[Rfam]
This 69-nucleotide RNA sequence from Streptomyces bingchenggensis belongs to the Rfam family "ASpks TB sRNA". A reference for the family is Arnvig and Young (2009), "Identification of small RNAs in Mycobacterium tuberculosis", Mol Microbiol. A search with the family's covariance model found it, with a score of 58 bits.
RNA sequence: CUUGAUGGAGCCGAGCCGCAGGGGCAGCUCACGGUCCCGCCCGUACGUGGCAAGCAGCGCCUGCGCCUC
Numbered sequence: 001c002u003u004g005a006u007g008g009a010g011c012c013g014a015g016c017c018g019c020a021g022g023g024g025c026a027g028c029u030c031a032c033g034g035u036c037c038c039g040c041c042c043g044u045a046c047g048u049g050g051c052a053a054g055c056a057g058c059g060c061c062u063g064c065g066c067c068u069c
Base pairs, nucleotide, nucleotide: 015025016024017023028065030063032059033058037054041050042049043048